[Rfam]
RNA sequence: GGUCCUACCCACGAGCAGGAGAACCCGCUGAACUUAAGCAUAUCAUUAAGCGGAGGAAAAGAAACUAACCAGGAUUCCCUUAGUAACGGCGAGCGAACCGGGAGUAGCCCAACCACGAAGCGCAUUGAACCUGAGCCAAGGGAGGCCAGGUUCUAGUGCAUUGUAGGGUAAAAGGAAAACGGAGUGGUGAAUCCGAUGGGUGUAUUCCUAGCUAAAGGGAAACCCUAUACCCGCACGUGUCUGAAGAGGAACUGGAAUGUCCCACCAGAGAGAGUGAGAGUCUCGUAAGUCACGCGCGGGUUGGGUCCAAUACCCUUUACCAGGGCCCGGAUGAUCCACCAAUUCCUGAGAGUCGGGUUGCUUGAGAGUGCAGCCUGAAGCGGGUGGUAGACCCCAUCCAAGGCUAAAUACAACCGGGAGACCGAUAGCGAACAAGUACCGCGAGGGAAAGAUGAAAGAGCACCCCGGAAGGGGAGUGAAAUGAGAACCUGAAAUCAUUAGGGUGGAAG
Numbered sequence: 001g002g003u004c005c006u007a008c009c010c011a012c013g014a015g016c017a018g019g020a021g022a023a024c025c026c027g028c029u030g031a032a033c034u035u036a037a038g039c040a041u042a043u044c045a046u047u048a049a050g051c052g053g054a055g056g057a058a059a060a061g062a063a064a065c066u067a068a069c070c071a072g073g074a075u076u077c078c079c080u081u082a083g084u085a086a087c088g089g090c091g092a093g094c095g096a097a098c099c100g101g102g103a104g105u106a107g108c109c110c111a112a113c114c115a116c117g118a119a120g121c122g123c124a125u126u127g128a129a130c131c132u133g134a135g136c137c138a139a140g141g142g143a144g145g146c147c148a149g150g151u152u153c154u155a156g157u158g159c160a161u162u163g164u165a166g167g168g169u170a171a172a173a174g175g176a177a178a179a180c181g182g183a184g185u186g187g188u189g190a191a192u193c194c195g196a197u198g199g200g201u202g203u204a205u206u207c208c209u210a211g212c213u214a215a216a217g218g219g220a221a222a223c224c225c226u227a228u229a230c231c232c233g234c235a236c237g238u239g240u241c242u243g244a245a246g247a248g249g250a251a252c253u254g255g256a257a258u259g260u261c262c263c264a265c266c267a268g269a270g271a272g273a274g275u276g277a278g279a280g281u282c283u284c285g286u287a288a289g290u291c292a293c294g295c296g297c298g299g300g301u302u303g304g305g306u307c308c309a310a311u312a313c314c315c316u317u318u319a320c321c322a323g324g325g326c327c328c329g330g331a332u333g334a335u336c337c338a339c340c341a342a343u344u345c346c347u348g349a350g351a352g353u354c355g356g357g358u359u360g361c362u363u364g365a366g367a368g369u370g371c372a373g374c375c376u377g378a379a380g381c382g383g384g385u386g387g388u389a390g391a392c393c394c395c396a397u398c399c400a401a402g403g404c405u406a407a408a409u410a411c412a413a414c415c416g417g418g419a420g421a422c423c424g425a426u427a428g429c430g431a432a433c434a435a436g437u438a439c440c441g442c443g444a445g446g447g448a449a450a451g452a453u454g455a456a457a458g459a460g461c462a463c464c465c466c467g468g469a470a471g472g473g474g475a476g477u478g479a480a481a482u483g484a485g486a487a488c489c490u491g492a493a494a495u496c497a498u499u500a501g502g503g504u505g506g507a508a509g
Stems, first nucleotide, its partner, number of pairs: 024055001025053005035042002065072002076103004087093001106405004113168002117164001119162002122159006174346004181340002228333002231330003236324001241323002246263001248262002251260002266270001273316002355376007382399005439446002463474004
A member of the RNA family "Eukaryotic large subunit ribosomal RNA" from Bigelowiella natans, 509 nucleotides of a longer RNA. The family's consensus secondary structure is taken from published work.